This 228-nucleotide part of an RNA from Mycoplasma sp. belongs to the Rfam family "Bacterial large subunit ribosomal RNA".
Rfam links the family to the GO terms ribosome and structural constituent of ribosome.
[Rfam]
RNA sequence: GAGUUAUGUUUGCAUGCAAGGUUAAGUCGUAAAGACGGAGCCGUAGUGAAAGCGAGCCUUAAGAGGGCGCUAGUAUGUAGCCAUAGACCCGAAACCCAGUGAUCUAGUCAUGACCAGGUUGAAGGUGUAGUAAAAUACACUGGAGGACCGAACCGACGUUCGUUGAAAAGACCGCGGAUGAGUUGUGACUAGUGGUGAAAUUCCAAUCGAACUGGGUGAUAGCUGGUU
Numbered sequence: 001g002a003g004u005u006a007u008g009u010u011u012g013c014a015u016g017c018a019a020g021g022u023u024a025a026g027u028c029g030u031a032a033a034g035a036c037g038g039a040g041c042c043g044u045a046g047u048g049a050a051a052g053c054g055a056g057c058c059u060u061a062a063g064a065g066g067g068c069g070c071u072a073g074u075a076u077g078u079a080g081c082c083a084u085a086g087a088c089c090c091g092a093a094a095c096c097c098a099g100u101g102a103u104c105u106a107g108u109c110a111u112g113a114c115c116a117g118g119u120u121g122a123a124g125g126u127g128u129a130g131u132a133a134a135a136u137a138c139a140c141u142g143g144a145g146g147a148c149c150g151a152a153c154c155g156a157c158g159u160u161c162g163u164u165g166a167a168a169a170g171a172c173c174g175c176g177g178a179u180g181a182g183u184u185g186u187g188a189c190u191a192g193u194g195g196u197g198a199a200a201u202u203c204c205a206a207u208c209g210a211a212c213u214g215g216g217u218g219a220u221a222g223c224u225g226g227u228u
Base pairs, nucleotide, nucleotide: 005085006084007083008082010080011079012078013077014076015075016074017073020042021041022040023039026036027035028034046053047052056068057067058066059065088226089225091223095216096215097214098213099212100211104192105191106190107189108188109187110186111185112184113183114182115180117149118148119147120146124141125140126139127138128137129136153177154176155175157174158173160171161170194204195203